[Rfam]
RNA: Mu-gpT-DE RNA
RNA sequence: CCCUGACAGCCGCAUGAUGCGUCUGACACUAGCCCCGACAGGAGAAUCACAUG
Numbered sequence: 001c002c003c004u005g006a007c008a009g010c011c012g013c014a015u016g017a018u019g020c021g022u023c024u025g026a027c028a029c030u031a032g033c034c035c036c037g038a039c040a041g042g043a044g045a046a047u048c049a050c051a052u053g
Stems, first nucleotide, its partner, number of pairs: 002042004007025003011021001